[Rfam]
RNA sequence: AAAAAUAAAACGCCGAAUCCCCAGCUGGGGUACGGAGGAACCGCGGCCCUCACUAGGUCGUUCUGCAGCCGAUUUCCGGUUGCGAGGGGUGAAUCUUCUUCGGAAGAAGGCCAACCUUUCUGGCCCAACCCGUCAGCUAACUCCGAAGGCGCUUGGAAAGGAUGA
Numbered sequence: 001a002a003a004a005a006u007a008a009a010a011c012g013c014c015g016a017a018u019c020c021c022c023a024g025c026u027g028g029g030g031u032a033c034g035g036a037g038g039a040a041c042c043g044c045g046g047c048c049c050u051c052a053c054u055a056g057g058u059c060g061u062u063c064u065g066c067a068g069c070c071g072a073u074u075u076c077c078g079g080u081u082g083c084g085a086g087g088g089g090u091g092a093a094u095c096u097u098c099u100u101c102g103g104a105a106g107a108a109g110g111c112c113a114a115c116c117u118u119u120c121u122g123g124c125c126c127a128a129c130c131c132g133u134c135a136g137c138u139a140a141c142u143c144c145g146a147a148g149g150c151g152c153u154u155g156g157a158a159a160g161g162a163u164g165a
Stems, first nucleotide, its partner, number of pairs: 011151004019030002033145005042086001087131003095106004109125004
The record is a 165-nucleotide RNA from Heliomicrobium modesticaldum, which matches "c-di-AMP riboswitch aptamer (ydaO/yuaA leader)" in Rfam. A search with the family's covariance model found it, with a score of 87 bits.